[Rfam]
RNA sequence: GCAUGCCCGUGCGCCGUGGCCUCUGCCCGAACCGACCCUGACGUACUUCCCCAACGCCAGGUUCGUGCUCUCGGACAGGGACCUCGGCGCAGGGGCGCUUGCAA
Number, nucleotide and partner (000 for none) at each position: 001g000002c000003a000004u000005g000006c000007c000008c000009g000010u091011g090012c089013g088014c087015c086016g085017u000018g083019g082020c000021c080022u079023c078024u077025g076026c000027c074028c073029g072030a071031a000032c067033c065034g064035a063036c000037c061038c060039u059040g058041a000042c056043g055044u054045a000046c000047u000048u000049c000050c000051c000052c000053a000054a044055c043056g042057c000058c040059a039060g038061g037062u000063u035064c034065g033066u000067g032068c000069u000070c000071u030072c029073g028074g027075a000076c025077a024078g023079g022080g021081a000082c019083c018084u000085c016086g015087g014088c013089g012090c011091a010092g000093g000094g000095g000096c000097g000098c000099u000100u000101g000102c000103a000104a000

Shown here is a 104-nucleotide RNA from Mycobacterium fragae, a member of the family "mraW RNA". The match comes from Rfam's covariance-model search (78 bits). The organism belongs to Mycobacterium, within Bacteria. Pairs were carried over by alignment from the consensus structure, which is taken from published work.